[Rfam]
RNA sequence: AGCUGAUGAUGAUUGAAGAGUAGUGGUCAGAAGUGAUUUCUGAAAACCACAUUUUCUGAGGCU
Numbered sequence: 001a002g003c004u005g006a007u008g009a010u011g012a013u014u015g016a017a018g019a020g021u022a023g024u025g026g027u028c029a030g031a032a033g034u035g036a037u038u039u040c041u042g043a044a045a046a047c048c049a050c051a052u053u054u055u056c057u058g059a060g061g062c063u
Base pairs, nucleotide, nucleotide: 001063002062003061004060
Annotation:
This 63-nucleotide sequence from Eptatretus burgeri belongs to the Rfam family "Small nucleolar RNA SNORD75". Taxonomically the source falls in Eptatretus (Eukaryota, Metazoa, Chordata, Vertebrata). Gene Ontology terms of the family: nucleolus and RNA processing. The match comes from Rfam's covariance-model search (68 bits). The base pairs follow the family's consensus structure, which was predicted with RNAalifold. A reference for the family is Galardi et al. (2002), "Purified box C/D snoRNPs are able to reproduce site-specific 2'-O-methylation of target RNA in vitro", Mol Cell Biol. It is annotated as a C/D-box small nucleolar RNA. The family has 5 seed sequences and 767 matches in Rfam 15.1.